A member of the RNA family "Bacterial large subunit ribosomal RNA" from Candidatus Hodgkinia cicadicola, 337 nucleotides of a longer RNA. Lineage of the source: Bacteria > Pseudomonadati > Alphaproteobacteria > Candidatus Hodgkinia > Candidatus Hodgkinia cicadicola. The base pairs follow the family's consensus structure, which is taken from published work.
Nucleotides: 337
Base pairs, nucleotide, nucleotide: 001336002335003334008332009331010330011329012328013327014326015325017323018322019321034058035057036056037055038054043048059085060084061083062082063081064080066079067078068077069076070075086090098316099315100314101313102312103311104310105308106307109123110122111121126161127160128159129158130157131156132155133154134151138147139146140145164303165302166301167300169233170232171231174230175229176226177225178224179223180222183221184220185219190214192212193211194210195209196208197207198206234252235251236250237249238248239247253257263290273289274288275287276286277285278284
Number, partner (000 for none) and nucleotide at each position: 001336g002335a003334g004000c005000u006000a007000a008332u009331u010330g011329u012328g013327c014326u015325g016000a017323a018322g019321g020000a021000a022000c023000u024000c025000g026000g027000c028000a029000a030000a031000u032000u033000a034058c035057a036056c037055g038054c039000g040000u041000a042000a043048c044000u045000u046000a047000g048043g049000g050000a051000c052000g053000a054038g055037c056036g057035u058034g059085a060084c061083c062082u063081g064080g065000g066079g067078g068077c069076g070075g071000g072000c073000a074000a075070c076069c077068g078067c079066u080064u081063c082062g083061g084060g085059u086090g087000u088000a089000a090086c091000a092000c093000a094000a095000a096000u097000g098316g099315g100314g101313g102312g103311a104310g105308c106307g107000a108000c109123u110122g111121u112000u113000u114000a115000c116000c117000a118000a119000a120000a121111a122110c123109a124000c125000a126161g127160g128159a129158c130157u131156c132155u133154g134151c135000a136000a137000a138147a139146u140145c141000g142000c143000a144000a145140g146139a147138u148000g149000a150000c151134g152000u153000a154133u155132a156131g157130g158129g159128u160127c161126u162000g163000a164303c165302g166301c167300c168000u169233g170232c171231c172000c173000g174230g175229u176226g177225c178224u179223g180222g181000a182000a183221g184220g185219u186000a187000a188000a189000a190214g191000u192212g193211g194210a195209g196208u197207g198206u199000u200000u201000g202000a203000a204000a205000c206198g207197c208196g209195c210194u211193c212192u213000g214190c215000a216000u217000a218000a219185g220184c221183c222180u223179c224178a225177g226176u227000a228000a229175a230174c231171g232170g233169c234252g235251g236250c237249c238248g239247u240000a241000a242000c243000u244000a245000u246000a247239a248238c249237g250236g251235u252234c253257c254000u255000a256000a257253g258000g259000u260000a261000g262000c263290g264000a265000a266000a267000u268000u269000c270000c271000u272000u273289g274288u275287c276286g277285g278284a279000u280000a281000a282000g283000u284278u285277c286276c287275g288274a289273c290263c291000c292000g293000c294000a295000c296000g297000a298000a299000u300167g301166g302165c303164g304000u305000a306000a307106c308105g309000a310104c311103u312102u313101c314100c315099c316098u317000a318000c319000u320000g321019u322018c323017u324000c325015c326014a327013g328012c329011a330010c331009a332008a333000g334003c335002u336001c337000a